[Rfam]
RNA sequence: UAUGGAAGUAAAUCUCCAUAAGCUUACCUACGGUUGCAUAGUUGGUAACGAUUAUGUGAUAAGUUGUAGGGACAAUGUAAGACAUCUAUUUAAGCACAAAAUAGUACACUGCUAAGCUAGAUUACUAUGGAUAACGAAAGUGAACAUACAUUGAGGCG
Numbered sequence: 001u002a003u004g005g006a007a008g009u010a011a012a013u014c015u016c017c018a019u020a021a022g023c024u025u026a027c028c029u030a031c032g033g034u035u036g037c038a039u040a041g042u043u044g045g046u047a048a049c050g051a052u053u054a055u056g057u058g059a060u061a062a063g064u065u066g067u068a069g070g071g072a073c074a075a076u077g078u079a080a081g082a083c084a085u086c087u088a089u090u091u092a093a094g095c096a097c098a099a100a101a102u103a104g105u106a107c108a109c110u111g112c113u114a115a116g117c118u119a120g121a122u123u124a125c126u127a128u129g130g131a132u133a134a135c136g137a138a139a140g141u142g143a144a145c146a147u148a149c150a151u152u153g154a155g156g157c158g
Base pairs, nucleotide, nucleotide: 002019003018004017005016006015028069029068030067031066032065033060034059035058036057037056038055039054040053041052042051043050044049087096089094100123101122102121109116110115127151128150129149131147132146